[Rfam]
RNA: Small nucleolar RNA snoR27
Organism: Chenopodium quinoa
RNA sequence: AUUGGAUAAAUGAUGUGGUAAUUAAACUGCGUUAUCUUCCUGCAAUUUCCUAUUAUAAAGGGAUUGAAGAAAAUUAAGUUGCACUGAUAUCCAAG
Numbered sequence: 001a002u003u004g005g006a007u008a009a010a011u012g013a014u015g016u017g018g019u020a021a022u023u024a025a026a027c028u029g030c031g032u033u034a035u036c037u038u039c040c041u042g043c044a045a046u047u048u049c050c051u052a053u054u055a056u057a058a059a060g061g062g063a064u065u066g067a068a069g070a071a072a073a074u075u076a077a078g079u080u081g082c083a084c085u086g087a088u089a090u091c092c093a094a095g
Base pairs, nucleotide, nucleotide: 002094003093004092005091006090007089